Background
ALIL pseudoknot: a 117-nucleotide sequence from Rhizobium sp. RU36D. The organism belongs to Rhizobium, within Bacteria. On this family, see Mazauric et al., J Biol Chem 2008: "Apical loop-internal loop RNA pseudoknots: a new type of stimulator of -1 translational frameshifting in bacteria". The family's consensus secondary structure is taken from published work.
[Rfam]
RNA sequence: UGCUUAUUUUGCGAUGGCCGAGCUCGACCGCCCCUUCAAACGAUGAUCUCGUUCAUUGACGAACACCGUGGGGUGUUCGGGGUCGAGCCGAUCUGCAGGCUUUUGCCGAUUGCCCCG
Numbered sequence: 001u002g003c004u005u006a007u008u009u010u011g012c013g014a015u016g017g018c019c020g021a022g023c024u025c026g027a028c029c030g031c032c033c034c035u036u037c038a039a040a041c042g043a044u045g046a047u048c049u050c051g052u053u054c055a056u057u058g059a060c061g062a063a064c065a066c067c068g069u070g071g072g073g074u075g076u077u078c079g080g081g082g083u084c085g086a087g088c089c090g091a092u093c094u095g096c097a098g099g100c101u102u103u104u105g106c107c108g109a110u111u112g113c114c115c116c117g
Base pairs, nucleotide, nucleotide: 016032017031018030020028078117079116080115081114082113089112090111092109093108095106096105097104098103